[Rfam]
RNA sequence: GUGCAUGCUUGAAAACUUGCAACCUAUUGACCUUAGCUACGCAUGGGGGAACCUCUUUUCACCAUUAUUGCUUAGGGGAAAGUCCCCGGACAUUAGGCAGAGAUAUCCUGCAUACAGCGCAGAGUGGUGGCUUGCGUAGCCUGUCGGUGUUAAUACAUCCUCAGUUAUAGAGCACAACGCUUGCAAUCCAGAUUUGUCAAUAACACAGAUAUUCAAAUGAAGCACAAAAAAGUGCUGCUACAGAACAGGGCUCAUUCUCAGCACGCA
Number, nucleotide and partner (000 for none) at each position: 001g000002u267003g266004c265005a000006u263007g262008c261009u260010u000011g259012a258013a000014a000015a218016c000017u216018u215019g214020c000021a000022a000023c000024c000025u000026a000027u000028u000029g000030a000031c076032c075033u074034u000035a072036g071037c070038u000039a000040c000041g000042c000043a000044u000045g000046g060047g059048g058049g057050a056051a000052c000053c000054u000055c000056u050057u049058u048059u047060c046061a000062c000063c000064a000065u000066u000067a000068u000069u000070g037071c036072u035073u000074a033075g032076g031077g000078g000079a000080a000081a252082g251083u000084c250085c249086c248087c000088g000089g000090a000091c000092a000093u000094u000095a000096g107097g106098c000099a104100g000101a000102g000103a000104u099105a000106u097107c096108c122109u121110g120111c119112a000113u117114a000115c000116a000117g113118c000119g111120c110121a109122g108123a000124g000125u190126g189127g000128u000129g000130g187131c000132u185133u000134g000135c000136g000137u000138a000139g180140c179141c000142u177143g000144u000145c000146g000147g175148u174149g173150u172151u000152a000153a000154u000155a000156c000157a168158u167159c000160c000161u000162c000163a000164g000165u000166u000167a158168u157169a000170g000171a000172g150173c149174a148175c147176a000177a142178c000179g140180c139181u000182u000183g000184c000185a132186a000187u130188c000189c126190a125191g000192a000193u000194u000195u000196g000197u000198c000199a000200a000201u000202a000203a000204c000205a000206c000207a000208g000209a000210u000211a000212u000213u000214c019215a018216a017217a000218u015219g000220a000221a236222g235223c234224a233225c232226a000227a000228a000229a000230a000231a000232g225233u224234g223235c222236u221237g000238c000239u000240a000241c000242a000243g000244a000245a000246c000247a000248g086249g085250g084251c082252u081253c000254a000255u000256u000257c000258u012259c011260a009261g008262c007263a006264c000265g004266c003267a002
The family of this 267-nucleotide sequence from Cyprinus carpio is "RNase MRP". The family's RNA type in Rfam is ribozyme. Taxonomically the source falls in Cyprinus carpio (Eukaryota, Euteleostomi, Neopterygii, Ostariophysi).